Rfam assigns this 66-nucleotide sequence from Drosophila melanogaster to the family "mir-312 microRNA precursor family".

RNA sequence: GAUUUGGUUCGUCACAAGGGCAAUUCUGCAUUUUUUAACUAGUAUUGCACUUGAGACGGCCUGAUU
Numbered sequence: 001g002a003u004u005u006g007g008u009u010c011g012u013c014a015c016a017a018g019g020g021c022a023a024u025u026c027u028g029c030a031u032u033u034u035u036u037a038a039c040u041a042g043u044a045u046u047g048c049a050c051u052u053g054a055g056a057c058g059g060c061c062u063g064a065u066u
Stems, first nucleotide, its partner, number of pairs: 003064002006061003010058004015053004020048005026042003
Description:
Rfam's curators put it in the seed alignment. Pairs were carried over by alignment from the consensus structure, which was predicted with RNAalifold.